The record is a 277-nucleotide RNA sequence from Papio anubis, which matches "Mason-Pfizer monkey virus packaging signal" in Rfam. Rfam's curators write: This family represents a group of sequences that are related to the Mason-Pfizer monkey virus (MPMV) packaging signal. It scores 159 bits against the family's covariance model. Pairs were carried over by alignment from the consensus structure, which was predicted with PFOLD. It is annotated as a cis-regulatory element.
RNA sequence: UGGCGCCCGAACAGGGACCUGGAAACGAGGGACUCCGUGAGGAAGAGGACGCCAAAGGACGGUCGACCGUUAACAAGGACAAAAGAAAUUAAACUUUUUCGAUCACCGUGGGAACCUGCGGCGUCAAGAAUCAAAGGUAAGUGCAUCGAAAUGGGACAAGAAUUGAAGUCAUCAAAUUUAUGUGGGGACAAUUAAAGAGGCUUUAAAGAUACGAGGAGUAAGGUUAAAGGUAAUGAUUUUGUUUAAAUUUUUGAUUUUGUAAAAGAUACUUGCCUUG
Numbered sequence: 001u002g003g004c005g006c007c008c009g010a011a012c013a014g015g016g017a018c019c020u021g022g023a024a025a026c027g028a029g030g031g032a033c034u035c036c037g038u039g040a041g042g043a044a045g046a047g048g049a050c051g052c053c054a055a056a057g058g059a060c061g062g063u064c065g066a067c068c069g070u071u072a073a074c075a076a077g078g079a080c081a082a083a084a085g086a087a088a089u090u091a092a093a094c095u096u097u098u099u100c101g102a103u104c105a106c107c108g109u110g111g112g113a114a115c116c117u118g119c120g121g122c123g124u125c126a127a128g129a130a131u132c133a134a135a136g137g138u139a140a141g142u143g144c145a146u147c148g149a150a151a152u153g154g155g156a157c158a159a160g161a162a163u164u165g166a167a168g169u170c171a172u173c174a175a176a177u178u179u180a181u182g183u184g185g186g187g188a189c190a191a192u193u194a195a196a197g198a199g200g201c202u203u204u205a206a207a208g209a210u211a212c213g214a215g216g217a218g219u220a221a222g223g224u225u226a227a228a229g230g231u232a233a234u235g236a237u238u239u240u241g242u243u244u245a246a247a248u249u250u251u252u253g254a255u256u257u258u259g260u261a262a263a264a265g266a267u268a269c270u271u272g273c274c275u276u277g
Base pairs, nucleotide, nucleotide: 006031007030008029036048038046093138094137095136096134097133103127107123108122109121111119142158143157146155147153148152164205166204167203168201169200170199212253213252214251215250216249217248219246221239222238223237224236225235226234263276264275265274267272